[Rfam]
This 80-nucleotide RNA from Cyprinus carpio belongs to the Rfam family "mir-199 microRNA precursor family". Lineage of the source: Eukaryota > Chordata > Actinopterygii > Cyprinidae > Cyprinus carpio. About the family: This family consists of the microRNA (miRNA) precursor mir-199 which appears to be specific to humans. Animal miRNAs are transcribed as ~70nt precursors and subsequently processed by the Dicer enzyme to give a ~22nt product. In this case the mature sequence comes from the 3' arm of the precursor. The extents of the hairpin precursors are not generally known and are estimated based on hairpin prediction. The products are thought to have regulatory roles through complementarity to mRNA. The involvement of Dicer in miRNA processing suggests a relationship with the phenomenon of RNA interference. miRNAs are numbered based on the sequence of the mature RNA.
RNA sequence: GCUCCGUCUGCCCAGUGUCCAGACUACCUGUCCACGCCCUCACUAGUGUACAGUAGUCUGCACACUGGUUAGACUGGGUG
Numbered sequence: 001g002c003u004c005c006g007u008c009u010g011c012c013c014a015g016u017g018u019c020c021a022g023a024c025u026a027c028c029u030g031u032c033c034a035c036g037c038c039c040u041c042a043c044u045a046g047u048g049u050a051c052a053g054u055a056g057u058c059u060g061c062a063c064a065c066u067g068g069u070u071a072g073a074c075u076g077g078g079u080g
Stems, first nucleotide, its partner, number of pairs: 012068007020060007028053004033048002

Background
Rfam links the family to the GO terms miRNA-mediated post-transcriptional gene silencing and RISC complex. A reference for the family is Mourelatos et al. (2002), "miRNPs: a novel class of ribonucleoproteins containing numerous microRNAs", Genes Dev.